A member of the RNA family "L31-Actinobacteria ribosomal protein leader", 63 nucleotides long. The base pairs follow the family's consensus structure, which is taken from published work. The sequence is in the family's curated seed alignment. Clan: Ribosomal Protein L31 Leader clan. The family's RNA type in Rfam is cis-regulatory leader.
[Rfam]
RNA sequence: GCGGUACCGGUUCACGCUCGCUCUGAGGGACCACGGUCCUGAGCCGCGAGCGACCCGGCGACU
Number, nucleotide and partner (000 for none) at each position: 001g000002c000003g063004g062005u061006a000007c058008c057009g056010g055011u000012u000013c000014a000015c052016g051017c050018u049019c048020g047021c046022u000023c000024u000025g000026a000027g000028g000029g000030a000031c000032c000033a000034c000035g000036g000037u000038c000039c000040u000041g000042a000043g000044c000045c000046g021047c020048g019049a018050g017051c016052g015053a000054c000055c010056c009057g008058g007059c000060g000061a005062c004063u003